[Rfam]
RNA: MIR396 microRNA precursor family
Organism: Solanum tuberosum
RNA sequence: UUUUGUUUUUUUCCACAGCUUUCUUGAACUGCAUCUAAUUACAAUUUCAAUUCACAAAAUGAAUAAUUGAUUCAUAUUGUUGUUGCGGUUCAAUAAGGCUGUGGGAAGAUACAGAUA
Numbered sequence: 001u002u003u004u005g006u007u008u009u010u011u012u013c014c015a016c017a018g019c020u021u022u023c024u025u026g027a028a029c030u031g032c033a034u035c036u037a038a039u040u041a042c043a044a045u046u047u048c049a050a051u052u053c054a055c056a057a058a059a060u061g062a063a064u065a066a067u068u069g070a071u072u073c074a075u076a077u078u079g080u081u082g083u084u085g086c087g088g089u090u091c092a093a094u095a096a097g098g099c100u101g102u103g104g105g106a107a108g109a110u111a112c113a114g115a116u117a
Stems, first nucleotide, its partner, number of pairs: 003114004013104003017100006024093004029088005